RNA sequence: GGUGAUAAAUUGCGGCGUGCAAUAGAUGCAGCGGACCCGGGGGCGGUACCCGGCGGCUCCACCAUCACUUUUUCCAGCUUUGUCUGGAAACUCCGUUGUCGCGGGGGUGUUGAUGGGGCCGAACUAGGAUCGACGUGUGUUGAAAAGCGCUGUUUUUACCCGGGCUGAGUAACCCGUAUCAAGGCUCAAAUCUCAUAAGUGCCAACGACAACGAAGCACUUGCUCUGGCUGCGUAA
Numbered sequence: 001g002g003u004g005a006u007a008a009a010u011u012g013c014g015g016c017g018u019g020c021a022a023u024a025g026a027u028g029c030a031g032c033g034g035a036c037c038c039g040g041g042g043g044c045g046g047u048a049c050c051c052g053g054c055g056g057c058u059c060c061a062c063c064a065u066c067a068c069u070u071u072u073u074c075c076a077g078c079u080u081u082g083u084c085u086g087g088a089a090a091c092u093c094c095g096u097u098g099u100c101g102c103g104g105g106g107g108u109g110u111u112g113a114u115g116g117g118g119c120c121g122a123a124c125u126a127g128g129a130u131c132g133a134c135g136u137g138u139g140u141u142g143a144a145a146a147g148c149g150c151u152g153u154u155u156u157u158a159c160c161c162g163g164g165c166u167g168a169g170u171a172a173c174c175c176g177u178a179u180c181a182a183g184g185c186u187c188a189a190a191u192c193u194c195a196u197a198a199g200u201g202c203c204a205a206c207g208a209c210a211a212c213g214a215a216g217c218a219c220u221u222g223c224u225c226u227g228g229c230u231g232c233g234u235a236a
Stems, first nucleotide, its partner, number of pairs: 001160005015150004027139003031136003037053005054121007161176004
Annotation:
This 236-nucleotide RNA sequence from Novosphingobium umbonatum belongs to the Rfam family "permuted transfer-messenger RNA". For this family Rfam cites "Phylogenetic analysis of tmRNA secondary structure" (Williams and Bartel, RNA, 1996). Pairs were carried over by alignment from the consensus structure, which is taken from published work. The match comes from Rfam's covariance-model search (132 bits). By type it is a non-coding RNA gene. From the family's description: Bacterial tmRNA, also known as 10Sa RNA or SsrA, is named for its dual tRNA and mRNA-like properties.